[Rfam]
RNA: epsC RNA
RNA sequence: CGGCGAGGCUUCCUGUCCGUUAUCCAUGGGGGCACUCGAUCAUGCUGUGGGUCCCGCUUUCGGGACCUUAGAUGCAGGUCGUCGAGAGCAUGAUGUGAGGAUGGGUUAGAUGCCCA
Numbered sequence: 001c002g003g004c005g006a007g008g009c010u011u012c013c014u015g016u017c018c019g020u021u022a023u024c025c026a027u028g029g030g031g032g033c034a035c036u037c038g039a040u041c042a043u044g045c046u047g048u049g050g051g052u053c054c055c056g057c058u059u060u061c062g063g064g065a066c067c068u069u070a071g072a073u074g075c076a077g078g079u080c081g082u083c084g085a086g087a088g089c090a091u092g093a094u095g096u097g098a099g100g101a102u103g104g105g106u107u108a109g110a111u112g113c114c115c116a
Stems, first nucleotide, its partner, number of pairs: 001019003008033006035099004039094008049068008071083004102116005